[Rfam]
RNA sequence: AUGUCCUUGUGUUAUUUGCUGAUUGUAUUUUUAACCAAGAUCAGUGAUUGUCAAAAAGGACAAAUAUUAAAACAGCCAAUGUCUCGUUAUUGUUUGAAAAUGCUUAUAUAAAUGGCCUUUAAACAUUUCCAUACGUUGGUUACAUUU
Numbered sequence: 001a002u003g004u005c006c007u008u009g010u011g012u013u014a015u016u017u018g019c020u021g022a023u024u025g026u027a028u029u030u031u032u033a034a035c036c037a038a039g040a041u042c043a044g045u046g047a048u049u050g051u052c053a054a055a056a057a058g059g060a061c062a063a064a065u066a067u068u069a070a071a072a073c074a075g076c077c078a079a080u081g082u083c084u085c086g087u088u089a090u091u092g093u094u095u096g097a098a099a100a101u102g103c104u105u106a107u108a109u110a111a112a113u114g115g116c117c118u119u120u121a122a123a124c125a126u127u128u129c130c131a132u133a134c135g136u137u138g139g140u141u142a143c144a145u146u147u
Stems, first nucleotide, its partner, number of pairs: 002062006010053002016047007089127001091125008
Small nucleolar RNA psi18S-1377: a 147-nucleotide RNA from Lucilia cuprina.
psi18S-1377 is a member of the H/ACA class of snoRNA. This family is responsible for guiding the modification of uridines 1377 and 1279 to pseudouridine in Drosophila 18S rRNA.
Rfam links the family to the GO terms RNA processing and nucleolus.